Shown here is a 432-nucleotide RNA from Panthera tigris, a member of the family "Vertebrate telomerase RNA". Telomerase is a ribonucleoprotein reverse transcriptase that synthesises telomeric DNA. Telomerase RNAs differ greatly in sequence and structure between vertebrates, ciliates and yeasts, but they share a 5' pseudoknot structure close to the template sequence. Vertebrate telomerase RNAs have a 3' H/ACA snoRNA-like domain. Pairs were carried over by alignment from the consensus structure, which is taken from published work.
RNA sequence: UGGGCCGGGGAGGGGAAGCGGUCAGUUUUUGUCUAACCCUAACUCAGAAGGGCGUAGGCGCCCCUCUUUUGUUUCCCGCACGCUGUUUUUUUCGCUGACUUUCAGCGGGCGGAAAAGCCUCGGCCUACCGCCGUCCACCGUACAGUUUGGAGCAAACAAAAAAUGUCAGCUGCUGACUUGCUCGCCCCUCCCAGCACCCUGCGGUGGCUCGCCUCCUUAGCCCCCGCGUCCCGCCUAGAGGCCGCGGUCGGCCCGGGGCUUCUCCGGAGGCACCCAUUGCCGUCGCGAAGAGUUGGGCUCUGUCAGCCGCGGGUCCCUUGGGGGGCCAAGGGCGAGGCUCUGACCGCAGGGAGAGAAACGGGAGCAGGUCCCCGCGCGCGGUGCGCUUCCCUGAGCUGUGGGACUUGCACCCGGGACUGGGCUCAGACACAU
Numbered sequence: 001u002g003g004g005c006c007g008g009g010g011a012g013g014g015g016a017a018g019c020g021g022u023c024a025g026u027u028u029u030u031g032u033c034u035a036a037c038c039c040u041a042a043c044u045c046a047g048a049a050g051g052g053c054g055u056a057g058g059c060g061c062c063c064c065u066c067u068u069u070u071g072u073u074u075c076c077c078g079c080a081c082g083c084u085g086u087u088u089u090u091u092u093c094g095c096u097g098a099c100u101u102u103c104a105g106c107g108g109g110c111g112g113a114a115a116a117g118c119c120u121c122g123g124c125c126u127a128c129c130g131c132c133g134u135c136c137a138c139c140g141u142a143c144a145g146u147u148u149g150g151a152g153c154a155a156a157c158a159a160a161a162a163a164u165g166u167c168a169g170c171u172g173c174u175g176a177c178u179u180g181c182u183c184g185c186c187c188c189u190c191c192c193a194g195c196a197c198c199c200u201g202c203g204g205u206g207g208c209u210c211g212c213c214u215c216c217u218u219a220g221c222c223c224c225c226g227c228g229u230c231c232c233g234c235c236u237a238g239a240g241g242c243c244g245c246g247g248u249c250g251g252c253c254c255g256g257g258g259c260u261u262c263u264c265c266g267g268a269g270g271c272a273c274c275c276a277u278u279g280c281c282g283u284c285g286c287g288a289a290g291a292g293u294u295g296g297g298c299u300c301u302g303u304c305a306g307c308c309g310c311g312g313g314u315c316c317c318u319u320g321g322g323g324g325g326c327c328a329a330g331g332g333c334g335a336g337g338c339u340c341u342g343a344c345c346g347c348a349g350g351g352a353g354a355g356a357a358a359c360g361g362g363a364g365c366a367g368g369u370c371c372c373c374g375c376g377c378g379c380g381g382u383g384c385g386c387u388u389c390c391c392u393g394a395g396c397u398g399u400g401g402g403a404c405u406u407g408c409a410c411c412c413g414g415g416a417c418u419g420g421g422c423u424c425a426g427a428c429a430c431a432u
Base pairs, nucleotide, nucleotide: 006194008192009191010190011189012188013187014186015185018182020178021177022176023175024174066117067116068115069114077111078110079109081107082106083105084104085103094170095169096168097167098166099165100163101162102161198350199349200348201347202346203345204344211338212337213336214334215332216331217330218329222323223322224321225320226319228317230313231312232311233310234309243287244286245285246284247283249282250281251280252279255275256274257273289301290300291299292298362424363423364422365421367418368417369416370415371414372413381410382409383408384407385406388403389402390401391400

For this family Rfam cites "Secondary structure of vertebrate telomerase RNA" (Chen et al., Cell, 2000). Rfam links the family to the GO terms telomere maintenance via telomerase, telomerase activity and telomerase catalytic core complex. A search with the family's covariance model found it, with a score of 338 bits. Taxonomically the source falls in Panthera tigris (Eukaryota, Vertebrata, Teleostomi, Felidae).